Rfam assigns this 165-nucleotide RNA from Arthrobacter sp. ISL-28 to the family "c-di-AMP riboswitch aptamer (ydaO/yuaA leader)". Pairs were carried over by alignment from the consensus structure. Gene Ontology terms of the family: regulation of gene expression and cyclic-di-AMP binding. NCBI's taxonomy places the organism under Bacteria, Bacillati, Actinomycetes, Micrococcaceae, Arthrobacter.
RNA sequence: CGUUCGCAAUUUCCGAUGGCAGGGACGGGGGAACCACCUUUUUACCGGCCUCCCUUAGAGGCCUUGGGGUUAAGUCCAGGCGCUCCGUCCAGCGACGGGGGAUGGACCGGGUGACCUCCCACCCGAACCCGACAGCUCACCCCGCAGGCAUGGGAGAGGUAAAAA
Numbered sequence: 001c002g003u004u005c006g007c008a009a010u011u012u013c014c015g016a017u018g019g020c021a022g023g024g025a026c027g028g029g030g031g032a033a034c035c036a037c038c039u040u041u042u043u044a045c046c047g048g049c050c051u052c053c054c055u056u057a058g059a060g061g062c063c064u065u066g067g068g069g070u071u072a073a074g075u076c077c078a079g080g081c082g083c084u085c086c087g088u089c090c091a092g093c094g095a096c097g098g099g100g101g102a103u104g105g106a107c108c109g110g111g112u113g114a115c116c117u118c119c120c121a122c123c124c125g126a127a128c129c130c131g132a133c134a135g136c137u138c139a140c141c142c143c144g145c146a147g148g149c150a151u152g153g154g155a156g157a158g159g160u161a162a163a164a165a
Stems, first nucleotide, its partner, number of pairs: 001147001005024001007022001026144005035066002067130003075106004109124004